[Rfam]
RNA sequence: UGACAGCACUCUGGAGAGACUCAAUUAAGGGCGCCGAAGGGGCAAUACAAUGAUGUGUUGUAAAUCUCUCAGGCAAAAGGACAGAGGUUAACUA
Numbered sequence: 001u002g003a004c005a006g007c008a009c010u011c012u013g014g015a016g017a018g019a020c021u022c023a024a025u026u027a028a029g030g031g032c033g034c035c036g037a038a039g040g041g042g043c044a045a046u047a048c049a050a051u052g053a054u055g056u057g058u059u060g061u062a063a064a065u066c067u068c069u070c071a072g073g074c075a076a077a078a079g080g081a082c083a084g085a086g087g088u089u090a091a092c093u094a
Stems, first nucleotide, its partner, number of pairs: 006089001009086005020031003033074003036070002040068003